Shown here is a 140-nucleotide sequence from Anisodus acutangulus, a member of the family "MIR7993 microRNA precursor family".
The source organism's lineage runs through Eukaryota, Viridiplantae, Tracheophyta, Euphyllophyta and Anisodus.
It scores 102 bits against the family's covariance model.
RNA sequence: GUAAAUUAAUCACAUAAAAUAUGUAUCUCCUUUAAUUAUAUGUAUUCACCUCAAUAAGUCGUAAAACUUCAAGCAUUUUCUACUUGAGGUGGAUGCGUAUAAUUAAAGCAGAUGACAUAUUUUAUGUGAUUAGUUUAACU
Dot-bracket structure: .(((((((((((((((((((((((..((.(((((((((((((((((.((((((...............................)))))).))))))))))))))))).))...)))))))))))))))))))))))...